[Rfam]
This 298-nucleotide sequence from Diaphorina citri belongs to the Rfam family "Metazoan signal recognition particle RNA". From the family's description: The signal recognition particle (SRP) is a universally conserved ribonucleoprotein. It is involved in the co-translational targeting of proteins to membranes. The eukaryotic SRP consists of a 300-nucleotide 7S RNA and six proteins: SRPs 72, 68, 54, 19, 14, and 9. Archaeal SRP consists of a 7S RNA and homologues of the eukaryotic SRP19 and SRP54 proteins. Eukaryotic and archaeal 7S RNAs have very similar secondary structures, as represented by this family. Eight helical elements fold into the Alu and S domains, separated by a long linker region. The Alu domain is thought to mediate the peptide chain elongation retardation function of the SRP. The universally conserved helix which interacts with the SRP54 M domain mediates signal sequence recognition. In eukaryotes and archaea, the SRP19-helix 6 complex is thought to be involved in SRP assembly and stabilises helix 8 for SRP54 binding. The Signal Recognition Particle Database (SRPDB) provides compilations of SRP components, with phylogenetic data and structural illustrations. Many sequences below the threshold for this family are clearly closely related, but are most likely to be SRP RNA derived pseudogenes. The human genome in particular is known to contain a large amount of SRP RNA related sequence, including Alu repeats. While the threshold of this family is set high so as to minimise the number of hits to such regions, it is likely that some remain. For this family Rfam cites "SRPDB: Signal Recognition Particle Database" (Rosenblad et al., Nucleic Acids Res, 2003). Rfam classes the family as a non-coding RNA gene. The base pairs follow the family's consensus structure, which is taken from published work. A search with the family's covariance model found it, with a score of 248 bits. Lineage of the source: Eukaryota > Bilateria > Ecdysozoa > Dicondylia > Diaphorina.
RNA sequence: GCUGGGAGUUUGGCAAGCUCCUGUAAUCGUGCGUCUGCGAGGCCGGGAAGUGUGGAUGGUUUGAGAUGGGGAGUUCUAUGCACCAGUUGAUUUACGUAGACUGGGCGUCCGCACUAAGCCUGUCAUCAAUAUGGUUUCUCGGAGGGAGCUCUGAAUAACCAGGUUAGCUAAGGAGAGGCGAACCGGGCCAGGGGGGAAACCCAGCAGCCAAAAGUCUCCGUGGCAUGCAGUAGUGGGAUAGCGCCUGAGAGUGAACGCUGGUGUGUAGCCUCAUCAAUACAAUCAGACCAUUUCCUUU
Number, nucleotide and partner (000 for none) at each position: 001g043002c042003u041004g022005g021006g020007a019008g018009u017010u016011u015012g000013g000014c000015a011016a010017g009018c008019u007020c006021c005022u004023g000024u000025a000026a000027u040028c039029g038030u000031g000032c000033g000034u000035c000036u000037g000038c029039g028040a027041g003042g002043c001044c000045g296046g295047g294048a293049a292050g291051u290052g289053u000054g000055g000056a000057u285058g284059g283060u282061u281062u000063g000064a000065g275066a274067u273068g272069g271070g270071g269072a000073g000074u000075u000076c268077u267078a266079u265080g264081c263082a262083c261084c260085a259086g258087u257088u000089g000090a000091u255092u254093u253094a252095c251096g000097u249098a000099g000100a000101c000102u247103g246104g245105g244106c243107g242108u241109c237110c236111g000112c235113a234114c233115u232116a231117a000118g228119c227120c000121u225122g224123u223124c222125a221126u220127c000128a165129a164130u163131a000132u161133g160134g159135u158136u157137u000138c000139u154140c153141g152142g151143a150144g149145g000146g000147a000148g000149c144150u143151c142152u141153g140154a139155a000156u000157a136158a135159c134160c133161a132162g000163g130164u129165u128166a000167g000168c172169u000170a000171a000172g168173g000174a000175g218176a217177g216178g215179c214180g000181a000182a000183c000184c000185g000186g209187g208188c207189c000190a000191g000192g000193g202194g201195g200196g000197a000198a000199a000200c195201c194202c193203a000204g000205c000206a000207g188208c187209c186210a000211a000212a000213a000214g179215u178216c177217u176218c175219c000220g126221u125222g124223g123224c122225a121226u000227g119228c118229a000230g000231u116232a115233g114234u113235g112236g110237g109238a000239u000240a000241g108242c107243g106244c105245c104246u103247g102248a000249g097250a000251g095252u094253g093254a092255a091256c000257g087258c086259u085260g084261g083262u082263g081264u080265g079266u078267a077268g076269c071270c070271u069272c068273a067274u066275c065276a000277a000278u000279a000280c000281a061282a060283u059284c058285a057286g000287a000288c000289c052290a051291u050292u049293u048294c047295c046296u045297u000298u000